Background:
Vault RNA: a 101-nucleotide RNA sequence from Sinocyclocheilus rhinocerous. Rfam describes the family as follows. This family of RNAs are found as part of the enigmatic vault ribonucleoprotein complex. The match comes from Rfam's covariance-model search (52 bits). The family's RNA type in Rfam is non-coding RNA gene.
RNA sequence: GCGUUGGUUUAGCUCAGUGGUUACUUCCGAUUGUUAUUAAAUCACACUCUCAGGGCCGCCGGUGACCGUGGAUCGAUCCUCGGGCUCAGUCUAACGUUUUC
Numbered sequence: 001g002c003g004u005u006g007g008u009u010u011a012g013c014u015c016a017g018u019g020g021u022u023a024c025u026u027c028c029g030a031u032u033g034u035u036a037u038u039a040a041a042u043c044a045c046a047c048u049c050u051c052a053g054g055g056c057c058g059c060c061g062g063u064g065a066c067c068g069u070g071g072a073u074c075g076a077u078c079c080u081c082g083g084g085c086u087c088a089g090u091c092u093a094a095c096g097u098u099u100u101c
Base pairs, nucleotide, nucleotide: 002096003095004094005093006092007091012085013084014083015082017081019079020078026076027075029073